This 257-nucleotide RNA sequence from Holothuria leucospilota belongs to the Rfam family "RNase MRP".
From the family's description: RNase MRP is an enzymatically active ribonucleoprotein with two distinct roles in eukaryotes. In mitochondria it plays a direct role in the initiation of mitochondrial DNA replication. In the nucleus it is involved in precursor rRNA processing, where it cleaves the internal transcribed spacer 1 between 18S and 5.8S rRNAs. Despite distinct functions, RNase MRP has been shown to be evolutionarily related to RNase P. Like eukaryotic RNase P, RNase MRP is not catalytically active without associated protein subunits.
Rfam links the family to the GO terms ribonuclease MRP activity, ribonuclease MRP complex and rRNA processing.
Its Rfam clan is "RNaseP clan".
By type it is a ribozyme.
The organism belongs to Holothuria, within Eukaryota.
A search with the family's covariance model found it, with a score of 124 bits.
The family's consensus secondary structure is taken from published work.
[Rfam]
RNA sequence: UGCAUCUUGCAACACUUGAGAUCAGAGUCACAUGCAGAGAUGUGUAUAUCUCCACUUUACUCAGGGGAAAGUCCCUGGAUCUUGAAUAGAGAGUAUUGGUAGUAGAUAAUACUGCCUUUGCACUGUAAUUGUUGCCCAUUUAUGCGAUGAAGCCUUGGCUGAGUUAUGGGCAAUGUUAGGCACUUUCUAUCCUAGCACAGUUAUUCAAGUAGCAGUGCAUGCACUGCCAACACAACAGGGCUUAUUCUGCAAGAUGG
Numbered sequence: 001u002g003c004a005u006c007u008u009g010c011a012a013c014a015c016u017u018g019a020g021a022u023c024a025g026a027g028u029c030a031c032a033u034g035c036a037g038a039g040a041u042g043u044g045u046a047u048a049u050c051u052c053c054a055c056u057u058u059a060c061u062c063a064g065g066g067g068a069a070a071g072u073c074c075c076u077g078g079a080u081c082u083u084g085a086a087u088a089g090a091g092a093g094u095a096u097u098g099g100u101a102g103u104a105g106a107u108a109a110u111a112c113u114g115c116c117u118u119u120g121c122a123c124u125g126u127a128a129u130u131g132u133u134g135c136c137c138a139u140u141u142a143u144g145c146g147a148u149g150a151a152g153c154c155u156u157g158g159c160u161g162a163g164u165u166a167u168g169g170g171c172a173a174u175g176u177u178a179g180g181c182a183c184u185u186u187c188u189a190u191c192c193u194a195g196c197a198c199a200g201u202u203a204u205u206c207a208a209g210u211a212g213c214a215g216u217g218c219a220u221g222c223a224c225u226g227c228c229a230a231c232a233c234a235a236c237a238g239g240g241c242u243u244a245u246u247c248u249g250c251a252a253g254a255u256g257g
Stems, first nucleotide, its partner, number of pairs: 003256009014210006022065002025062004037052006069243003073240004085097004098116006118182001124178002127176001130173001134171004144164002152159002212227006